Record summary:
Small nucleolar RNA Z278: a 115-nucleotide RNA from Theobroma umbraticum. Rfam's curators write: snoZ278 is a C/D box small nucleolar RNA. Its methylation guide targets have not been reported. Taxonomically the source falls in Theobroma (Eukaryota, Euphyllophyta, eudicotyledons, Pentapetalae). On this family, see Chen et al., Nucleic Acids Res 2003: "The high diversity of snoRNAs in plants: identification and comparative study of 120 snoRNA genes from Oryza sativa". The match comes from Rfam's covariance-model search (60 bits). Rfam links the family to the GO terms nucleolus and RNA processing. The family's consensus secondary structure was predicted with PFOLD.
RNA sequence: GUCUAUGAUGAUUUAUCCGUUUGUUUGAGGUGUAGAUUCCCUCAAGUCCCUGUUUACAGGGAGAACCUACUUGGGGUGCUGCAUCAUUCAUGAAAUUACUGGAUUUUGCUGAGAC
Numbered sequence: 001g002u003c004u005a006u007g008a009u010g011a012u013u014u015a016u017c018c019g020u021u022u023g024u025u026u027g028a029g030g031u032g033u034a035g036a037u038u039c040c041c042u043c044a045a046g047u048c049c050c051u052g053u054u055u056a057c058a059g060g061g062a063g064a065a066c067c068u069a070c071u072u073g074g075g076g077u078g079c080u081g082c083a084u085c086a087u088u089c090a091u092g093a094a095a096u097u098a099c100u101g102g103a104u105u106u107u108g109c110u111g112a113g114a115c
Stems, first nucleotide, its partner, number of pairs: 001115003048061005